[Rfam]
RNA sequence: UGCACAUUUGAGGCCUUAGCAGAAGUGCUUGUGGCAUGGCUGGCAGAUUCCAAUGAGUCUGCAAAUUUUGCU
Numbered sequence: 001u002g003c004a005c006a007u008u009u010g011a012g013g014c015c016u017u018a019g020c021a022g023a024a025g026u027g028c029u030u031g032u033g034g035c036a037u038g039g040c041u042g043g044c045a046g047a048u049u050c051c052a053a054u055g056a057g058u059c060u061g062c063a064a065a066u067u068u069u070g071c072u
Stems, first nucleotide, its partner, number of pairs: 013040003018072007025037003044061007
RNA: Mammalian CPEB3 ribozyme
Organism: Crocodylus porosus